[Rfam]
RNA sequence: CGUGCGGACGCGGUGUCCGCACGCCCGCUGCGGUACCUGGUACGGCCGUAGUCGG
Number, nucleotide and partner (000 for none) at each position: 001c023002g022003u021004g020005c019006g018007g017008a016009c015010g000011c000012g000013g000014u000015g009016u008017c007018c006019g005020c004021a003022c002023g001024c000025c055026c054027g053028c051029u050030g049031c048032g047033g046034u045035a000036c000037c000038u000039g000040g000041u000042a000043c000044g000045g034046c033047c032048g031049u030050a029051g028052u000053c027054g026055g025

Shown here is a 55-nucleotide RNA sequence from Kitasatospora phosalacinea, a member of the family "L17-Actino-Proteobacteria ribosomal protein leader".
The family's consensus secondary structure is taken from published work.
The source organism's lineage runs through Bacteria, Bacillati, Actinomycetota, Streptomycetaceae and Kitasatospora.